[Rfam]
Description:
This 87-nucleotide RNA sequence from Hankyongella ginsenosidimutans belongs to the Rfam family "tRNA". The family's RNA type in Rfam is transfer RNA. NCBI's taxonomy places the organism under Bacteria, Pseudomonadota, Alphaproteobacteria, Sphingomonadales, Hankyongella.
RNA sequence: GGUGACGUGGGUGAGUGGCUGAAACCAGCAGUUUGCUAAACUGCCGUAGGGGUUACCCUACCGAGGGUUCGAAUCCCUCCGUCACCG
Numbered sequence: 001g002g003u004g005a006c007g008u009g010g011g012u013g014a015g016u017g018g019c020u021g022a023a024a025c026c027a028g029c030a031g032u033u034u035g036c037u038a039a040a041c042u043g044c045c046g047u048a049g050g051g052g053u054u055a056c057c058c059u060a061c062c063g064a065g066g067g068u069u070c071g072a073a074u075c076c077c078u079c080c081g082u083c084a085c086c087g
Stems, first nucleotide, its partner, number of pairs: 001086007010026003028044005063079005
Its family is annotated with triplet codon-amino acid adaptor activity in the Gene Ontology.